[Rfam]
RNA sequence: AGUAGUAGCAGCAAAGUGAGGUGAGAAUCCUUACCGCCGGAGGGGCUAGGGUUCCUUGGCAAUGUUCGUCAGCCAAGGGUUAGUCGGUCCUAAGGCCAUGGGUAAUGUCCAUGUGGUCGAAAGGGUAACAGGUUAAUAUUCCUGUACGGUCCAGGUACUUGCGGUGACGCUGGGUUGGGCUUCUGACGCUUCGGGGUAGGCUGAGCGGGAUUUUCGUCCUGUUUAAGGGUUGAAGCCUGGGGAGAGCCGUAAUGGCGAGAACUAUUGGUGAAGGCCUGAAUAGCCACUCCUUGUUGGGUGGUUCGGCUGUGCCCUGGAGUCCUUGAAAAGGGAGUCCUUCUUGGGAUCCUGGAUCGCCGUACCGAGAUCCGACACUGGUGCCCCUAGCUGAGUAGGCUAAGGCGUGU
Numbered sequence: 001a002g003u004a005g006u007a008g009c010a011g012c013a014a015a016g017u018g019a020g021g022u023g024a025g026a027a028u029c030c031u032u033a034c035c036g037c038c039g040g041a042g043g044g045g046c047u048a049g050g051g052u053u054c055c056u057u058g059g060c061a062a063u064g065u066u067c068g069u070c071a072g073c074c075a076a077g078g079g080u081u082a083g084u085c086g087g088u089c090c091u092a093a094g095g096c097c098a099u100g101g102g103u104a105a106u107g108u109c110c111a112u113g114u115g116g117u118c119g120a121a122a123g124g125g126u127a128a129c130a131g132g133u134u135a136a137u138a139u140u141c142c143u144g145u146a147c148g149g150u151c152c153a154g155g156u157a158c159u160u161g162c163g164g165u166g167a168c169g170c171u172g173g174g175u176u177g178g179g180c181u182u183c184u185g186a187c188g189c190u191u192c193g194g195g196g197u198a199g200g201c202u203g204a205g206c207g208g209g210a211u212u213u214u215c216g217u218c219c220u221g222u223u224u225a226a227g228g229g230u231u232g233a234a235g236c237c238u239g240g241g242g243a244g245a246g247c248c249g250u251a252a253u254g255g256c257g258a259g260a261a262c263u264a265u266u267g268g269u270g271a272a273g274g275c276c277u278g279a280a281u282a283g284c285c286a287c288u289c290c291u292u293g294u295u296g297g298g299u300g301g302u303u304c305g306g307c308u309g310u311g312c313c314c315u316g317g318a319g320u321c322c323u324u325g326a327a328a329a330g331g332g333a334g335u336c337c338u339u340c341u342u343g344g345g346a347u348c349c350u351g352g353a354u355c356g357c358c359g360u361a362c363c364g365a366g367a368u369c370c371g372a373c374a375c376u377g378g379u380g381c382c383c384c385u386a387g388c389u390g391a392g393u394a395g396g397c398u399a400a401g402g403c404g405u406g407u
Stems, first nucleotide, its partner, number of pairs: 016034006035404004043383004049363002054078006063071002085359003089124002094118006101110002128145005148355008181334003188320009199308005204223006227277004236268002238264003246256003289296001369378002385399004
The family of this 407-nucleotide part of an RNA from Methanothermobacter thermautotrophicus is "Archaeal large subunit ribosomal RNA". Taxonomically the source falls in Methanothermobacter thermautotrophicus (Archaea, Methanobacteriati, Methanobacteria, Methanothermobacter).